The family of this 153-nucleotide sequence from Camphora micrantha is "Small nucleolar RNA snoR111". Rfam links the family to the GO terms nucleolus and RNA processing. The match comes from Rfam's covariance-model search (40 bits). Rfam 15.1 lists 533 matches to the family in 223 species. The base pairs follow the family's consensus structure, which was predicted with WAR.
RNA sequence: AAAAGGGUGAUUGAGAAGAAUAUGUUCUCUCUCUAUCUAUCUUUCUCUGAUAAAUGGAGGGAAUUAGGGAAAUCAAAGUGUCGAGAUAUAGUUUCAGACUUUCAGUCGCCCUUUCGUCUUUGGUUGGCGAUUUGAUUGUUGACUCAAUCACAU
Numbered sequence: 001a002a003a004a005g006g007g008u009g010a011u012u013g014a015g016a017a018g019a020a021u022a023u024g025u026u027c028u029c030u031c032u033c034u035a036u037c038u039a040u041c042u043u044u045c046u047c048u049g050a051u052a053a054a055u056g057g058a059g060g061g062a063a064u065u066a067g068g069g070a071a072a073u074c075a076a077a078g079u080g081u082c083g084a085g086a087u088a089u090a091g092u093u094u095c096a097g098a099c100u101u102u103c104a105g106u107c108g109c110c111c112u113u114u115c116g117u118c119u120u121u122g123g124u125u126g127g128c129g130a131u132u133u134g135a136u137u138g139u140u141g142a143c144u145c146a147a148u149c150a151c152a153u
Stems, first nucleotide, its partner, number of pairs: 006055001008053001010051002013047006080149001083145003088136002091133001105131006113123002